[Rfam]
Nucleotides: 087
Base pairs, nucleotide, nucleotide: 003085004084005083006082
Number, partner (000 for none) and nucleotide at each position: 001000a002000a003085c004084u005083c006082c007000g008000a009000u010000g011000a012000u013000g014000a015000u016000u017000a018000a019000a020000c021000a022000u023000u024000a025000a026000a027000c028000u029000u030000u031000c032000g033000u034000u035000c036000u037000u038000c039000u040000g041000a042000g043000u044000u045000u046000a047000c048000a049000u050000g051000c052000a053000a054000u055000g056000c057000g058000g059000a060000u061000a062000a063000a064000c065000a066000u067000g068000g069000a070000g071000a072000c073000c074000u075000g076000a077000a078000c079000u080000g081000a082006g083005g084004a085003g086000u087000a

Notes: Shown here is an 87-nucleotide sequence from Zingiber officinale, a member of the family "Small nucleolar RNA Z159/U59". The family's RNA type in Rfam is C/D-box small nucleolar RNA. On this family, see Chen et al., Nucleic Acids Res 2003: "The high diversity of snoRNAs in plants: identification and comparative study of 120 snoRNA genes from Oryza sativa". Rfam links the family to the GO terms nucleolus and RNA processing. The family's consensus secondary structure was predicted with PFOLD. The match comes from Rfam's covariance-model search (73 bits).